[Rfam]
RNA sequence: UACCUGUCACAACGGCUUCCUGGCGUGACGAGGUGACCUCAGUGGAGCA
Numbered sequence: 001u002a003c004c005u006g007u008c009a010c011a012a013c014g015g016c017u018u019c020c021u022g023g024c025g026u027g028a029c030g031a032g033g034u035g036a037c038c039u040c041a042g043u044g045g046a047g048c049a
Base pairs, nucleotide, nucleotide: 004032005031006029007028008027009026010025013022014021015048016047017046019045020044
About this RNA
A member of the RNA family "SAM/SAH riboswitch aptamer" from Roseobacter sp. SK209-2-6, 49 nucleotides long. The literature on the family includes a 2019 paper in Nucleic Acids Res by Weickhmann et al., "The structure of the SAM/SAH-binding riboswitch". The base pairs follow the family's consensus structure, which is taken from published work. The sequence is in the family's curated seed alignment.